[Rfam]
RNA: mir-24 microRNA precursor family
Organism: Xenopus tropicalis
RNA sequence: CUCUUGUGCCUACUGAACUGAUAUCAGUUCUAUUUCACACACUGGCUCAGUUCAGCAGGAACAGGAG
Number, nucleotide and partner (000 for none) at each position: 001c067002u066003c065004u064005u000006g062007u061008g000009c059010c058011u057012a000013c055014u054015g053016a052017a051018c050019u049020g048021a047022u000023a000024u045025c044026a043027g042028u041029u000030c000031u000032a000033u000034u000035u000036c000037a000038c000039a000040c000041a028042c027043u026044g025045g024046c000047u021048c020049a019050g018051u017052u016053c015054a014055g013056c000057a011058g010059g009060a000061a007062c006063a000064g004065g003066a002067g001